[Rfam]
RNA: Small nucleolar RNA SNORD17
RNA sequence: GUGAGGUGAUGACACAGUUUAUCCAUUCUCUGAGUGCAGUGGAGCUGCCCUCCUGCAGCACCCCAGCUCCUGUCCUAGGGUCUGGGUGCUGUGCAGCCUCCAGACAUGCUGCAGGGUCCCAGUGUCCUACUGGGGGCUACUGUGAUGUGUGGCUGGCUGCCUGCAGGAGGGGAGCAGUGCUGGCAGGGUUGGAGCCCCUCUUUGGGGGCUCCAUCCUCACUGGGACGAGGGAUGGUGUCUGAUCAC
Numbered sequence: 001g002u003g004a005g006g007u008g009a010u011g012a013c014a015c016a017g018u019u020u021a022u023c024c025a026u027u028c029u030c031u032g033a034g035u036g037c038a039g040u041g042g043a044g045c046u047g048c049c050c051u052c053c054u055g056c057a058g059c060a061c062c063c064c065a066g067c068u069c070c071u072g073u074c075c076u077a078g079g080g081u082c083u084g085g086g087u088g089c090u091g092u093g094c095a096g097c098c099u100c101c102a103g104a105c106a107u108g109c110u111g112c113a114g115g116g117u118c119c120c121a122g123u124g125u126c127c128u129a130c131u132g133g134g135g136g137c138u139a140c141u142g143u144g145a146u147g148u149g150u151g152g153c154u155g156g157c158u159g160c161c162u163g164c165a166g167g168a169g170g171g172g173a174g175c176a177g178u179g180c181u182g183g184c185a186g187g188g189u190u191g192g193a194g195c196c197c198c199u200c201u202u203u204g205g206g207g208g209c210u211c212c213a214u215c216c217u218c219a220c221u222g223g224g225a226c227g228a229g230g231g232a233u234g235g236u237g238u239c240u241g242a243u244c245a246c
Stems, first nucleotide, its partner, number of pairs: 010245003017238002020235001023231002026229003030224002034220002039184002042181001044178005049171002051168007061088001063086002066082001068080004093160006106146002108143001111140001114138002117135008186218002188215001190213004195208004